[Rfam]
RNA sequence: CUUCCCAUUUAUUUGCUGCUAUAGUCUUUACAAUGAUAUGAGCAGUUAUAUGCACAGGAUAAAAUAACAUUGGACCACUGUCAAUUGAGAUGGAGUAACUAUUUCAUCUCUUCUGCAUGCAUAGUUUAGACAAAU
Numbered sequence: 001c002u003u004c005c006c007a008u009u010u011a012u013u014u015g016c017u018g019c020u021a022u023a024g025u026c027u028u029u030a031c032a033a034u035g036a037u038a039u040g041a042g043c044a045g046u047u048a049u050a051u052g053c054a055c056a057g058g059a060u061a062a063a064a065u066a067a068c069a070u071u072g073g074a075c076c077a078c079u080g081u082c083a084a085u086u087g088a089g090a091u092g093g094a095g096u097a098a099c100u101a102u103u104u105c106a107u108c109u110c111u112u113c114u115g116c117a118u119g120c121a122u123a124g125u126u127u128a129g130a131c132a133a134a135u
Base pairs, nucleotide, nucleotide: 003059004058005057008054015046016045017044018043019042020041022038023037025036026035070129071128072127073126074125075124077122079117080116081115087110088109089108090107091106092105093104094103095102096101
RNA: Small nucleolar RNA SNORA20